A member of the RNA family "Bacterial RNase P class A" from Citreimonas salinaria, 380 nucleotides long. NCBI's taxonomy places the organism under Bacteria, Pseudomonadati, Alphaproteobacteria, Rhodobacterales, Citreimonas.

[Rfam]
RNA sequence: GUGGAAGGCCGGGCGGCCGCUGGCGCGGGCUUGUCCCGCGCUGGAGGAAAGUCCGGACUCGAUGAAGCGCCGGUGCCGGGUAACGCCCGGGCGGGGCAACCCGACGGAAAGCGCCACAGAAAUCAGACCGCCCCUCACGUGUGACGGGUAAGGGUGAAACGGUGGGGUAAGAGCCCACCGGGGGCCUGGCGACAGGACCCGCAUGGCAAGCCCCACCGGGAGCAAUGCCAAAUAGGGAUCGCGCGCCGAAAGGCAGGGCCGCUUCAGCCCGAGCGAUCCGGGUUGGCAGCUUGAGCCGCGCGGCGACGCGCGGCCCAGAUGAAUGGUCGCCCAAGGGCGCAAGCCCUGGACAGGAUCCGGCUUACAGGCCUUCCACGCAC
Numbered sequence: 001g002u003g004g005a006a007g008g009c010c011g012g013g014c015g016g017c018c019g020c021u022g023g024c025g026c027g028g029g030c031u032u033g034u035c036c037c038g039c040g041c042u043g044g045a046g047g048a049a050a051g052u053c054c055g056g057a058c059u060c061g062a063u064g065a066a067g068c069g070c071c072g073g074u075g076c077c078g079g080g081u082a083a084c085g086c087c088c089g090g091g092c093g094g095g096g097c098a099a100c101c102c103g104a105c106g107g108a109a110a111g112c113g114c115c116a117c118a119g120a121a122a123u124c125a126g127a128c129c130g131c132c133c134c135u136c137a138c139g140u141g142u143g144a145c146g147g148g149u150a151a152g153g154g155u156g157a158a159a160c161g162g163u164g165g166g167g168u169a170a171g172a173g174c175c176c177a178c179c180g181g182g183g184g185c186c187u188g189g190c191g192a193c194a195g196g197a198c199c200c201g202c203a204u205g206g207c208a209a210g211c212c213c214c215a216c217c218g219g220g221a222g223c224a225a226u227g228c229c230a231a232a233u234a235g236g237g238a239u240c241g242c243g244c245g246c247c248g249a250a251a252g253g254c255a256g257g258g259c260c261g262c263u264u265c266a267g268c269c270c271g272a273g274c275g276a277u278c279c280g281g282g283u284u285g286g287c288a289g290c291u292u293g294a295g296c297c298g299c300g301c302g303g304c305g306a307c308g309c310g311c312g313g314c315c316c317a318g319a320u321g322a323a324u325g326g327u328c329g330c331c332c333a334a335g336g337g338c339g340c341a342a343g344c345c346c347u348g349g350a351c352a353g354g355a356u357c358c359g360g361c362u363u364a365c366a367g368g369c370c371u372u373c374c375a376c377g378c379a380c
Base pairs, nucleotide, nucleotide: 001376002375003374004373005372006371007370008369009368010367011365012331013330014329015328016327017326018325020044021043022042023041024040025039026038027037028036049363050362051361053360054359055358056357057356058222059221060220066264067263071218072217073216074215075214076090077089078088079087080086091105092103093102094101095100106213107212111211112210113207114206115205128153129152130149131148132147133146135144136143137142161179162178163177164176165175166174180202181200182199183198185196186195187194188193226288227287228286229285236279237278238277239276240275241274256270257269258268259267295314296313297312298311299310300309301308302307